[Rfam]
The family of this 72-nucleotide RNA from Eleutherodactylus coqui is "Small nucleolar RNA SNORD26". Rfam 15.1 lists 451 matches to the family in 401 species. A reference for the family is Tycowski et al. (1996), "A mammalian gene with introns instead of exons generating stable RNA products", Nature. The family's RNA type in Rfam is C/D-box small nucleolar RNA.

RNA sequence: CCACAAAGAUGAUACUACUUGAACUCUCUCUUCCUGAGCUGACAGUGGAGAGAACCUCACUGACUGAGUGGC
Dot-bracket structure: ((((...............................................................)))).
Annotation:
The source organism's lineage runs through Eukaryota, Euteleostomi, Anura, Eleutherodactylus and Eleutherodactylus. Its Rfam clan is "SNORD26 clan".